A member of the RNA family "FGF-1 internal ribosome entry site (IRES)" from Galemys pyrenaicus, 178 nucleotides long. This family represents the FGF-1 internal ribosome entry site (IRES). The FGF-1 IRES is present in the 5' UTR of the mRNA and allows cap-independent translation. It is thought that FGF-1 IRES activity is strictly controlled and highly tissue specific. The organism belongs to Galemys, within Eukaryota. Its family is annotated with ribosome binding in the Gene Ontology. The literature on the family includes a 2004 paper in Mol Cell Biol by Martineau et al., "Internal Ribosome Entry Site Structural Motifs Conserved among Mammalian Fibroblast Growth Factor 1 Alternatively Spliced mRNAs".
RNA sequence: GACUCCAAGGGAAAAGAGCAUCACAUCGCCUCCUUUUGCUGAAGGACACUCCCUUCUGAUGGAGAAUGGGAACUCCCUCCCUCCUGCAGCAGCCAGUCUGCAGCAGCCCUGGUAGGUCAGCGUGGAAGCUGUAGGCUAUUGCAGCUGCCGAAGCCCCAGAGAGAAAGUGCUUCAGAGC
Numbered sequence: 001g002a003c004u005c006c007a008a009g010g011g012a013a014a015a016g017a018g019c020a021u022c023a024c025a026u027c028g029c030c031u032c033c034u035u036u037u038g039c040u041g042a043a044g045g046a047c048a049c050u051c052c053c054u055u056c057u058g059a060u061g062g063a064g065a066a067u068g069g070g071a072a073c074u075c076c077c078u079c080c081c082u083c084c085u086g087c088a089g090c091a092g093c094c095a096g097u098c099u100g101c102a103g104c105a106g107c108c109c110u111g112g113u114a115g116g117u118c119a120g121c122g123u124g125g126a127a128g129c130u131g132u133a134g135g136c137u138a139u140u141g142c143a144g145c146u147g148c149c150g151a152a153g154c155c156c157c158a159g160a161g162a163g164a165a166a167g168u169g170c171u172u173c174a175g176a177g178c
Stems, first nucleotide, its partner, number of pairs: 003177003009172003015054002018051001024045001030044002033041001055160003062083001064080001066078001068077003089154001090150001092148002098144006109124001